[Rfam]
RNA sequence: CGGCGCAGACGGGUGGUGGAACACCCGCCCGCGCCUGACCACAACCCGACUGUAAAGGAGUCAGGCCAUGGCUAA
Numbered sequence: 001c002g003g004c005g006c007a008g009a010c011g012g013g014u015g016g017u018g019g020a021a022c023a024c025c026c027g028c029c030c031g032c033g034c035c036u037g038a039c040c041a042c043a044a045c046c047c048g049a050c051u052g053u054a055a056a057g058g059a060g061u062c063a064g065g066c067c068a069u070g071g072c073u074a075a
Base pairs, nucleotide, nucleotide: 002035003034004033005032006031008029010027011026012025013024014023039071040070041069048062049061050060051059053057